A member of the RNA family "MIR845_2 microRNA precursor family" from Vitis vinifera, 130 nucleotides long. Rfam 15.1 lists 180 matches to the family in 2 species. A search with the family's covariance model found it, with a score of 115 bits.
[Rfam]
Nucleotides: 130
Base pairs, nucleotide, nucleotide: 009120012117013116014115015114016113022107023106024105025103027101028100029099030098031097032096047085052079053078055076056075059072060071061070
Number, partner (000 for none) and nucleotide at each position: 001000a002000g003000a004000a005000c006000a007000c008000a009120c010000a011000c012117u013116a014115a015114u016113u017000a018000u019000c020000c021000c022107u023106a024105g025103g026000c027101c028100a029099u030098g031097g032096g033000a034000u035000a036000a037000a038000c039000a040000a041000a042000a043000g044000c045000c046000c047085u048000a049000c050000a051000a052079a053078a054000a055076c056075a057000a058000g059072u060071u061070a062000g063000c064000a065000c066000a067000c068000c069000a070061u071060a072059g073000a074000a075056u076055g077000g078053u079052u080000c081000u082000a083000u084000c085047a086000u087000g088000a089000u090000u091000a092000c093000u094000a095000a096032c097031c098030u099029a100028u101027g102000u103025c104000u105024c106023u107022g108000a109000u110000a111000c112000c113016a114015a115014u116013u117012g118000a119000a120009g121000g122000a123000a124000a125000a126000a127000a128000c129000u130000u